A member of the RNA family "Eukaryotic small subunit ribosomal RNA" from Drosophila erecta, 153 nucleotides of a longer RNA. A reference for the family is Yusupov et al. (2001), "Crystal structure of the ribosome at 5.5 A resolution", Science. Its Rfam clan is "SSU clan". It is one of the family's seed sequences.
RNA sequence: CCGCCCGUCGCUACUACGGAUUGAAUUAUUUAGUGAGGUCUCUGACGCCUUGCGUGUUACGGUUGUUUCGCAAAAGUUGACCGAACUUGAUUAUUUAGAGGAAGUAAAAGUCGUACCAAGGUUUCCGUAGGUGAACCUACGGAAGGAUCAUUA
Number, nucleotide and partner (000 for none) at each position: 001c120002c000003g117004c000005c000006c113007g112008u000009c110010g000011c000012u106013a105014c104015u103016a000017c101018g000019g000020a000021u097022u000023g096024a095025a094026u093027u000028a091029u090030u089031u000032a087033g086034u085035g000036a000037g082038g081039u080040c079041u000042c076043u075044g000045a000046c000047g071048c070049c000050u000051u000052g066053c065054g064055u000056g000057u000058u000059a000060c000061g000062g000063u000064u054065g053066u052067u000068u000069c000070g048071c047072a000073a000074a000075a043076g042077u000078u000079g040080a039081c038082c037083g000084a000085a034086c033087u032088u000089g030090a029091u028092u000093a026094u025095u024096u023097a021098g000099a000100g000101g017102a000103a015104g014105u013106a012107a000108a000109a000110g009111u000112c007113g006114u000115a000116c000117c003118a000119a000120g001121g000122u145123u144124u143125c142126c141127g140128u139129a138130g137131g136132u000133g000134a000135a000136c131137c130138u129139a128140c127141g126142g125143a124144a123145g122146g000147a000148u000149c000150a000151u000152u000153a000